[Rfam]
RNA sequence: UGACUCACCUUGUUGAGCAGGGUGGAUCAAGACGUGGUAAAUCAGCAUAAGUGCCUCGUCUAUAAAUAAACCUCGUGAAUUGCUGGGAACUCUUUAAUAACCUGUUGGCUACAACGUGACCGGAAACGGUGAACGUGAAUGCUUGAAAACAACGGUGGAUAAAGACAAUCAGCAGCCGAGCUCCUACGUUCUUGAAUAGAAUAUGGAGAAGGUUCAACGACCAUCGAAAGCACACUAAUAAGUGGAAGUGAGUAGAGUAGGGAUCAAGUGAUUCCGAAGCGCGAGGGCAUUCUGAGAAUGCAAGAGAUGGUCUGAACUCUGGGGUGACCUAGAG
Numbered sequence: 001u002g003a004c005u006c007a008c009c010u011u012g013u014u015g016a017g018c019a020g021g022g023u024g025g026a027u028c029a030a031g032a033c034g035u036g037g038u039a040a041a042u043c044a045g046c047a048u049a050a051g052u053g054c055c056u057c058g059u060c061u062a063u064a065a066a067u068a069a070a071c072c073u074c075g076u077g078a079a080u081u082g083c084u085g086g087g088a089a090c091u092c093u094u095u096a097a098u099a100a101c102c103u104g105u106u107g108g109c110u111a112c113a114a115c116g117u118g119a120c121c122g123g124a125a126a127c128g129g130u131g132a133a134c135g136u137g138a139a140u141g142c143u144u145g146a147a148a149a150c151a152a153c154g155g156u157g158g159a160u161a162a163a164g165a166c167a168a169u170c171a172g173c174a175g176c177c178g179a180g181c182u183c184c185u186a187c188g189u190u191c192u193u194g195a196a197u198a199g200a201a202u203a204u205g206g207a208g209a210a211g212g213u214u215c216a217a218c219g220a221c222c223a224u225c226g227a228a229a230g231c232a233c234a235c236u237a238a239u240a241a242g243u244g245g246a247a248g249u250g251a252g253u254a255g256a257g258u259a260g261g262g263a264u265c266a267a268g269u270g271a272u273u274c275c276g277a278a279g280c281g282c283g284a285g286g287g288c289a290u291u292c293u294g295a296g297a298a299u300g301c302a303a304g305a306g307a308u309g310g311u312c313u314g315a316a317c318u319c320u321g322g323g324g325u326g327a328c329c330u331a332g333a334g
Base pairs, nucleotide, nucleotide: 005025006024007023008022009021010020011019012018013017029061071286072285073284074283076281077280081174082173083172084171085170086169091165092164093163094162095161175213176212181208182207183206184205189201190200191199192198217313219312220311221310222309223308289299290298291297292296319332320331321330322329323328
This 334-nucleotide RNA from Neobacillus rhizophilus belongs to the Rfam family "Group I catalytic intron". Rfam links the family to the GO term Group I intron splicing. The base pairs follow the family's consensus structure, which is taken from published work. It scores 76 bits against the family's covariance model. The source organism's lineage runs through Bacteria, Bacillati, Bacilli, Bacillaceae and Neobacillus.